Shown here is a 109-nucleotide RNA from Haloflavibacter putidus, a member of the family "6S-Flavo RNA". Rfam classes the family as a small RNA.
RNA sequence: ACUCAACACUUACUAAUUAAAAAGGGUGAGUCUAAAUUGUUAAAGCACGCCGUCUAAGAACGGAUCCUUGAUCAAUUUGUUAGCCCUAAACUUGUAUAUAACGGAGUUU
Numbered sequence: 001a002c003u004c005a006a007c008a009c010u011u012a013c014u015a016a017u018u019a020a021a022a023a024g025g026g027u028g029a030g031u032c033u034a035a036a037u038u039g040u041u042a043a044a045g046c047a048c049g050c051c052g053u054c055u056a057a058g059a060a061c062g063g064a065u066c067c068u069u070g071a072u073c074a075a076u077u078u079g080u081u082a083g084c085c086c087u088a089a090a091c092u093u094g095u096a097u098a099u100a101a102c103g104g105a106g107u108u109u
Base pairs, nucleotide, nucleotide: 023087024086025085026084027083034078035077036076037075038074043069044068045067050063051062052061053060